[Rfam]
The family of this 355-nucleotide part of an RNA from Abiotrophia defectiva is "Bacterial small subunit ribosomal RNA". Pairs were carried over by alignment from the consensus structure, which is taken from published work.
RNA sequence: GGUGUAAAGGGAGCGCAGGCGGUUUUGCAAGUUGAGAGUGGAAGCAGGGGGCUCAACCCCCUGACUGCUCCCAAAACUGUAAAACUUGAGUAUGGGAGAGGCAGGCGGAAUUCCUAGUGUAGCGGUGAAAUGCUUAGAUAUUAGGAAGAACACCGGUGGCGAAGGCGGCCUGCUGGACCAAAACUGACGCUGAGGCUCGAAAGCGUGGGUAGCAAACAGGAUUAGAUACCCUGGUAGUCCACGCUGUAAACGAUGAAUACUAGGUGCUGGGAGGCAUAAGCUUUUCGGUGCCGUCGCAAACGCAUUAAGUAUUCCACCUGGGGAGUACGUUCGCAAGAAUGAAACUCAAAGGAAU
Numbered sequence: 001g002g003u004g005u006a007a008a009g010g011g012a013g014c015g016c017a018g019g020c021g022g023u024u025u026u027g028c029a030a031g032u033u034g035a036g037a038g039u040g041g042a043a044g045c046a047g048g049g050g051g052c053u054c055a056a057c058c059c060c061c062u063g064a065c066u067g068c069u070c071c072c073a074a075a076a077c078u079g080u081a082a083a084a085c086u087u088g089a090g091u092a093u094g095g096g097a098g099a100g101g102c103a104g105g106c107g108g109a110a111u112u113c114c115u116a117g118u119g120u121a122g123c124g125g126u127g128a129a130a131u132g133c134u135u136a137g138a139u140a141u142u143a144g145g146a147a148g149a150a151c152a153c154c155g156g157u158g159g160c161g162a163a164g165g166c167g168g169c170c171u172g173c174u175g176g177a178c179c180a181a182a183a184c185u186g187a188c189g190c191u192g193a194g195g196c197u198c199g200a201a202a203g204c205g206u207g208g209g210u211a212g213c214a215a216a217c218a219g220g221a222u223u224a225g226a227u228a229c230c231c232u233g234g235u236a237g238u239c240c241a242c243g244c245u246g247u248a249a250a251c252g253a254u255g256a257a258u259a260c261u262a263g264g265u266g267c268u269g270g271g272a273g274g275c276a277u278a279a280g281c282u283u284u285u286c287g288g289u290g291c292c293g294u295c296g297c298a299a300a301c302g303c304a305u306u307a308a309g310u311a312u313u314c315c316a317c318c319u320g321g322g323g324a325g326u327a328c329g330u331u332c333g334c335a336a337g338a339a340u341g342a343a344a345c346u347c348a349a350a351g352g353a354a355u
Base pairs, nucleotide, nucleotide: 001318002317003316009315011198012197013196014195016192018191019190020189022085023084024083025082026081027080028079030078031077032074033073034072036070037069038068039067040066045063046062047061048060049059050058051057089185090184091183093180094179095178100174101173102172103171104170105169106168107151111147112146113145114144115143116142117141118140122133123132124131159166160165203244204243205242206241207240208239212238213237217233218232219231220230255314256313257312258311259310260309263292264291265290266289267288268287269286270285271284272283273282274281296303297302320347321346322345329340330339331338332337
Annotation
Clan: SSU clan. Lineage of the source: Bacteria > Bacillati > Bacillota > Bacilli > Abiotrophia defectiva. The sequence is in the family's curated seed alignment.